This 76-nucleotide RNA sequence from Chrysemys picta belongs to the Rfam family "Mammalian CPEB3 ribozyme".
[Rfam]
RNA sequence: ACUGUAUUACAGGGCCGUAGAAGGAGCUUUUAUGUCUCAGGCCCUGUCAGAUUCUUAGGAAUCUCCAAAUUCUGCU
Numbered sequence: 001a002c003u004g005u006a007u008u009a010c011a012g013g014g015c016c017g018u019a020g021a022a023g024g025a026g027c028u029u030u031u032a033u034g035u036c037u038c039a040g041g042c043c044c045u046g047u048c049a050g051a052u053u054c055u056u057a058g059g060a061a062u063c064u065c066c067a068a069a070u071u072c073u074g075c076u
Base pairs, nucleotide, nucleotide: 012044013043014042015040019076020075022073023072024071025070026038049064050063051062052061053060054059
The family's consensus secondary structure is taken from published work. It scores 44 bits against the family's covariance model.